Notes: A member of the RNA family "mraW RNA" from Mycobacterium asiaticum, 101 nucleotides long. It scores 75 bits against the family's covariance model. The family's RNA type in Rfam is cis-regulatory element.
RNA sequence: GCAUGCCUGUGCACCGUGGUCUCUGCCCGAACCGACCCUGGCGUACUUCCCCAACGCCAGGUGCGUCUCGGACAGGGGCCUCGGUGCACGGGCGGGCCGCC
Number, nucleotide and partner (000 for none) at each position: 001g000002c000003a000004u000005g000006c000007c000008u000009g000010u088011g087012c086013a085014c084015c083016g082017u000018g080019g079020u000021c077022u076023c075024u074025g073026c000027c071028c070029g069030a068031a000032c000033c065034g064035a000036c000037c061038c060039u059040g058041g057042c056043g055044u054045a000046c000047u000048u000049c000050c000051c000052c000053a000054a044055c043056g042057c041058c040059a039060g038061g037062u000063g000064c034065g033066u000067c000068u030069c029070g028071g027072a000073c025074a024075g023076g022077g021078g000079c019080c018081u000082c016083g015084g014085u013086g012087c011088a010089c000090g000091g000092g000093c000094g000095g000096g000097c000098c000099g000100c000101c000